[Rfam]
RNA sequence: AUGUGGAAAAGGUCCUCCAUUUUGUGGAUUCUUCCAAAAAGAGGCCCUUGUCCAUAGAG
Numbered sequence: 001a002u003g004u005g006g007a008a009a010a011g012g013u014c015c016u017c018c019a020u021u022u023u024g025u026g027g028a029u030u031c032u033u034c035c036a037a038a039a040a041g042a043g044g045c046c047c048u049u050g051u052c053c054a055u056a057g058a059g
Stems, first nucleotide, its partner, number of pairs: 002056006009049004018041001020039005026034001
A member of the RNA family "mir-7386 microRNA precursor family" from Sarcophilus harrisii, 59 nucleotides long. A search with the family's covariance model found it, with a score of 55 bits. Its family is annotated with RISC complex and miRNA-mediated post-transcriptional gene silencing in the Gene Ontology.